[Rfam]
RNA sequence: GUCGCAUUCAAGAUGUUACCAAUACGGAUGUAAAGAGUCAUAGACUCGAUUGGCCGAGAGCGCAUAAAAACCAUGUGGAGCCUUCCGUUGCCUUCCUUCUGACCUAUCGC
Numbered sequence: 001g002u003c004g005c006a007u008u009c010a011a012g013a014u015g016u017u018a019c020c021a022a023u024a025c026g027g028a029u030g031u032a033a034a035g036a037g038u039c040a041u042a043g044a045c046u047c048g049a050u051u052g053g054c055c056g057a058g059a060g061c062g063c064a065u066a067a068a069a070a071c072c073a074u075g076u077g078g079a080g081c082c083u084u085c086c087g088u089u090g091c092c093u094u095c096c097u098u099c100u101g102a103c104c105u106a107u108c109g110c
Stems, first nucleotide, its partner, number of pairs: 003109002025087004
RNA: Small nucleolar RNA Z13/snr52